[Rfam]
RNA: small nucleolar RNA snoR127
Nucleotides: 177
Stems, first nucleotide, its partner, number of pairs: 001176004
Number, partner (000 for none) and nucleotide at each position: 001176c002175u003174g004173g005000g006000a007000u008000g009000a010000u011000g012000c013000a014000a015000c016000u017000u018000a019000g020000c021000c022000a023000a024000a025000u026000c027000a028000g029000a030000c031000a032000u033000u034000g035000a036000u037000a038000u039000g040000c041000u042000c043000c044000a045000c046000g047000g048000g049000u050000g051000g052000g053000g054000u055000g056000u057000u058000u059000c060000u061000a062000g063000u064000a065000a066000c067000u068000u069000g070000u071000g072000c073000c074000a075000a076000c077000u078000g079000u080000u081000u082000c083000u084000a085000g086000g087000u088000g089000g090000g091000g092000u093000a094000c095000a096000a097000g098000u099000u100000a101000c102000a103000a104000u105000u106000c107000a108000c109000a110000u111000c112000c113000u114000u115000u116000c117000c118000u119000u120000u121000g122000u123000u124000g125000a126000a127000g128000c129000g130000u131000a132000u133000c134000a135000u136000c137000u138000u139000u140000c141000u142000g143000a144000u145000g146000a147000u148000a149000c150000a151000a152000c153000a154000g155000a156000g157000a158000u159000a160000g161000g162000u163000u164000u165000c166000u167000a168000g169000c170000u171000g172000a173004c174003c175002a176001g177000a